[Rfam]
RNA: Bacterial RNase P class A
Organism: Firmicutes bacterium CAG:882
RNA sequence: CCAGUCGGCUGAAUAAUCGCGGCUGCAAGUGUCGAAAGACCGCAGGUGAGGAAAGUCCGGGCUUCAAAGGGCAGGAUGCCGGAUAACGUCCGGUGGAGGUGACUCUAAGACCAGUGCAACAGAAAUAUACCGCCACAGACCGCAAGGUCGAGGUUCCUUUUAGGGACGUGGUAAGGGCGGAAGGGCAGUGUAAGAGACUACCGCCUGUCUGGUAACAGACAGGGCACAUGUAAACUCCAUCCGAAGCAAGACCGAAUAAGAGGCAGAGACGUGGCCCGCCAGUCUCAGGUAGGUCGCUUGAACCUGUUGGCAACAGCAGGUCUAGAUAGAUGAUUAUUCAAGACAUAACCCGGCUUACAGGCUGGCUGGUGUU
Numbered sequence: 001c002c003a004g005u006c007g008g009c010u011g012a013a014u015a016a017u018c019g020c021g022g023c024u025g026c027a028a029g030u031g032u033c034g035a036a037a038g039a040c041c042g043c044a045g046g047u048g049a050g051g052a053a054a055g056u057c058c059g060g061g062c063u064u065c066a067a068a069g070g071g072c073a074g075g076a077u078g079c080c081g082g083a084u085a086a087c088g089u090c091c092g093g094u095g096g097a098g099g100u101g102a103c104u105c106u107a108a109g110a111c112c113a114g115u116g117c118a119a120c121a122g123a124a125a126u127a128u129a130c131c132g133c134c135a136c137a138g139a140c141c142g143c144a145a146g147g148u149c150g151a152g153g154u155u156c157c158u159u160u161u162a163g164g165g166a167c168g169u170g171g172u173a174a175g176g177g178c179g180g181a182a183g184g185g186c187a188g189u190g191u192a193a194g195a196g197a198c199u200a201c202c203g204c205c206u207g208u209c210u211g212g213u214a215a216c217a218g219a220c221a222g223g224g225c226a227c228a229u230g231u232a233a234a235c236u237c238c239a240u241c242c243g244a245a246g247c248a249a250g251a252c253c254g255a256a257u258a259a260g261a262g263g264c265a266g267a268g269a270c271g272u273g274g275c276c277c278g279c280c281a282g283u284c285u286c287a288g289g290u291a292g293g294u295c296g297c298u299u300g301a302a303c304c305u306g307u308u309g310g311c312a313a314c315a316g317c318a319g320g321u322c323u324a325g326a327u328a329g330a331u332g333a334u335u336a337u338u339c340a341a342g343a344c345a346u347a348a349c350c351c352g353g354c355u356u357a358c359a360g361g362c363u364g365g366c367u368g369g370u371g372u373u
Stems, first nucleotide, its partner, number of pairs: 001369010011358001012338007020048002023045004053356003057353005062246004069277004074242005079093005094108001095106004109237002114235002116231003130176002132172005140164001184202002187199003203225001204223008250295004260286005271279002302321008